[Rfam]
This 118-nucleotide RNA from Alicyclobacillus hesperidum belongs to the Rfam family "PyrR binding site". It is annotated as a cis-regulatory element. Lineage of the source: Bacteria > Bacillota > Bacilli > Alicyclobacillaceae > Alicyclobacillus. About the family: This family represents the PyrR binding site and terminator structure. This RNA structure is found upstream of a variety of genes involved in pyrimidine biosynthesis and transport. The alignment also includes a portion of the antiterminator structure.

RNA sequence: ACUGCCUUUAAACCAAUCCCGUGAGGUUGGAAAGGAGUCGGACAGCGCAGAACUGGUGUAUGCUAGCCAGGUGUUCUGAGCAAACGGCCACCUCCUAACCGGGGUGGUCGUUUUUCGU
Numbered sequence: 001a002c003u004g005c006c007u008u009u010a011a012a013c014c015a016a017u018c019c020c021g022u023g024a025g026g027u028u029g030g031a032a033a034g035g036a037g038u039c040g041g042a043c044a045g046c047g048c049a050g051a052a053c054u055g056g057u058g059u060a061u062g063c064u065a066g067c068c069a070g071g072u073g074u075u076c077u078g079a080g081c082a083a084a085c086g087g088c089c090a091c092c093u094c095c096u097a098a099c100c101g102g103g104g105u106g107g108u109c110g111u112u113u114u115u116c117g118u
Stems, first nucleotide, its partner, number of pairs: 003037001005035005013030006044075005053066005082113013